This 114-nucleotide RNA from Sphaeramia orbicularis belongs to the Rfam family "Potassium channel RNA editing signal". A reference for the family is Bhalla et al. (2004), "Control of human potassium channel inactivation by editing of a small mRNA hairpin", Nat Struct Mol Biol.

RNA sequence: CUGGGAUAUGGUGACAUGUACCCAGAGACCUGGUCGGGUAUGGUUGUGGGCGCGUUGUGCGCUUUGGCCGGUGUGUUGACGAUAGCCAUGCCUGUUCCUGUUAUCGUGAAUAAC
Numbered sequence: 001c002u003g004g005g006a007u008a009u010g011g012u013g014a015c016a017u018g019u020a021c022c023c024a025g026a027g028a029c030c031u032g033g034u035c036g037g038g039u040a041u042g043g044u045u046g047u048g049g050g051c052g053c054g055u056u057g058u059g060c061g062c063u064u065u066g067g068c069c070g071g072u073g074u075g076u077u078g079a080c081g082a083u084a085g086c087c088a089u090g091c092c093u094g095u096u097c098c099u100g101u102u103a104u105c106g107u108g109a110a111u112a113a114c
Base pairs, nucleotide, nucleotide: 002113004111007108008107009106010105011104013102014101015100016099018097020095021094037077038076039075040074049063050062051061

Rfam classes the family as a cis-regulatory element. Taxonomically the source falls in Sphaeramia (Eukaryota, Opisthokonta, Ctenosquamata, Kurtiformes). The family has 85 seed sequences and 14,095 matches in Rfam 15.1.